[Rfam]
RNA sequence: AUUAGUGGGUGAUUGCGUAUGGCAACUGCCAUAUGAGGAAAGUCCAUGCUCGCACUGACUGCGAGGUCAGUAGUGUUCAUGCUAGCUGAAAAAAUAAGGCUAGGCAGUUAAGGUAACUUAACUGACGGCCAACGAAAAUCCUAAGGGUAACUAUGGAUGAGUAGUUGUGAAGGUGCCACAGUGACGAAUCAUCAAAGAAAUGCGAUGAAUGGAACGCGGUAAACCCCAUGAGCGGGCAACCCAAACUUUGGUAGGGGCGCUUGGCCUAGCGAAAUGAAGUGAUGGCCGGGGAGACAGAAAUGUCUGAGAUAGAUGAUUGCCACCGUGCACGGACUGCCACUUUGUGUACGGAACAAAACAUGGCUUACAGCU
Numbered sequence: 001a002u003u004a005g006u007g008g009g010u011g012a013u014u015g016c017g018u019a020u021g022g023c024a025a026c027u028g029c030c031a032u033a034u035g036a037g038g039a040a041a042g043u044c045c046a047u048g049c050u051c052g053c054a055c056u057g058a059c060u061g062c063g064a065g066g067u068c069a070g071u072a073g074u075g076u077u078c079a080u081g082c083u084a085g086c087u088g089a090a091a092a093a094a095u096a097a098g099g100c101u102a103g104g105c106a107g108u109u110a111a112g113g114u115a116a117c118u119u120a121a122c123u124g125a126c127g128g129c130c131a132a133c134g135a136a137a138a139u140c141c142u143a144a145g146g147g148u149a150a151c152u153a154u155g156g157a158u159g160a161g162u163a164g165u166u167g168u169g170a171a172g173g174u175g176c177c178a179c180a181g182u183g184a185c186g187a188a189u190c191a192u193c194a195a196a197g198a199a200a201u202g203c204g205a206u207g208a209a210u211g212g213a214a215c216g217c218g219g220u221a222a223a224c225c226c227c228a229u230g231a232g233c234g235g236g237c238a239a240c241c242c243a244a245a246c247u248u249u250g251g252u253a254g255g256g257g258c259g260c261u262u263g264g265c266c267u268a269g270c271g272a273a274a275u276g277a278a279g280u281g282a283u284g285g286c287c288g289g290g291g292a293g294a295c296a297g298a299a300a301u302g303u304c305u306g307a308g309a310u311a312g313a314u315g316a317u318u319g320c321c322a323c324c325g326u327g328c329a330c331g332g333a334c335u336g337c338c339a340c341u342u343u344g345u346g347u348a349c350g351g352a353a354c355a356a357a358a359c360a361u362g363g364c365u366u367a368c369a370g371c372u
Base pairs, nucleotide, nucleotide: 004372005371006370007368008321009320010319011318012317013316014315016035017034018033019032020031021030040366041365042364044363045362046361047360048359049236050235051234052233053232054071055070056069057068058067059066077231078230079229080228081227082103083102084101085100086099087098104126105124106123107122108121109120110119111118112117127226128225130167131166132165133164138158139157140156141155145152146151173224174223175220176219177218189208190207191206192205193204196201240256241255242254260290261289262288263287264286265285266284292305293304294303295302296301323351324350325349326348327347328346329345330344331343332342333341

This 372-nucleotide RNA sequence from Weissella halotolerans belongs to the Rfam family "Bacterial RNase P class B". Rfam describes the family as follows. Ribonuclease P (RNase P) is a ubiquitous endoribonuclease, found in archaea, bacteria and eukarya as well as chloroplasts and mitochondria. Its best characterised activity is the generation of mature 5'-ends of tRNAs by cleaving the 5'-leader elements of precursor-tRNAs. Cellular RNase Ps are ribonucleoproteins. A search with the family's covariance model found it, with a score of 318 bits. It is annotated as a ribozyme. The family is grouped with related families in Rfam's "RNaseP clan".